[Rfam]
Shown here is a 54-nucleotide RNA sequence from Oncorhynchus tshawytscha, a member of the family "UnaL2 LINE 3' element". It scores 58 bits against the family's covariance model. For this family Rfam cites "Solution structure of an RNA stem-loop derived from the 3' conserved region of eel LINE UnaL2" (Baba et al., RNA, 2004). By type it is a cis-regulatory element. Rfam describes the family as follows. The eel long interspersed element (LINE) UnaL2 and its partner short interspersed element (SINE) share a conserved 3' tail containing a stem-loop that is critical for their retrotransposition. Presumably, the first step of retrotransposition is the recognition of their 3' tails by UnaL2-encoded reverse transcriptase. The solution structure of a 17-nucleotide RNA derived from the 3' tail of UnaL2 was determined by NMR.
RNA sequence: ACUAAUUACUCCUGUAAGUCGCUCUGGAUAAGAGCAUCUGCUAAAUGAACAAAA
Number, nucleotide and partner (000 for none) at each position: 001a000002c000003u000004a000005a000006u000007u000008a000009c000010u000011c000012c000013u043014g041015u040016a039017a000018g000019u000020c000021g035022c034023u033024c032025u031026g000027g000028a000029u000030a000031a025032g024033a023034g022035c021036a000037u000038c000039u016040g015041c014042u000043a013044a000045a000046u000047g000048a000049a000050c000051a000052a000053a000054a000